[Rfam]
RNA sequence: CUUCUAGAAGGAAGCGAAGACCCCGUGGAGCUUUACUACAGCCUGUCGUUGUGAUACGGUGAUUGACGUGAAGUGUAGGUGGUAGCCGUCGAAACUUAGGCGCUAGCUUAAGUGGAGGCAACAAUGGGACACCACCCUUCUUUUGUCGCGUCACUAACUAGAAAUAGAACACCGAUUGGUGGGUAGUUUGGGUGGGGCGCCACACGCUCGAAAAGGUAUCAAGCGUGCCCAAUGGUCACCUCAAGGAGUUCAGAAACCUCCUGUAGAAUGCAAGGGUAAAAGGUGGCUUUACACGGAUUGGAACAAUAACAAUCCGCGUUGCGAAAGCAGGGCCUAGCGAACCAAUCAACCUCUUUUAUGGGGGUGAUUGAUAACAGAAAAGUUACCCCGGGGAUAACUGAGUUGUCUUCAGUAAGAGCCCAUAUCGACCUGAAGGCUUGCUACUUCGAUGUCGUCUCUCCGCAUCCUGGCGGUGCAGCAGCUGCCAAGGGUGGGGUUGUUCGCCCAUUAAAGCGGAUCGUGAGAUGGGUUUAGACCGUCGUGAGACAGGUUUGUUGCUAUCUUCUAGAAGCGU
Dot-bracket structure: ((((((((.(((.((......((((.(((((((.((((...((.((((..(((((.((((((..((.(.........(((((..(((.........(((((....)))))......)))............)))))).))..)))))).)))))...(((....))).....)))).))....))))..((((.....))).)(((((.............)))))..((....((((((((.(((((.........)))))...))((......))....))))))....(.(((((((.........))))))).).(.(....).).))..........(((((.(((((.......)))))))))).........)))))..))))))........(((.((((((((...((.......))...)))))))..))))..........(((((((((((..((..(((((......)))))....))..((((.....))))......)))))..)..)))).).....(((((((....))).))))....))..)))))))))))...
The family of this 574-nucleotide part of an RNA from Thermoplasmatales archaeon SCGC AB-539-C06 is "Archaeal large subunit ribosomal RNA". It scores 2750 bits against the family's covariance model. The base pairs follow the family's consensus structure, which is taken from published work.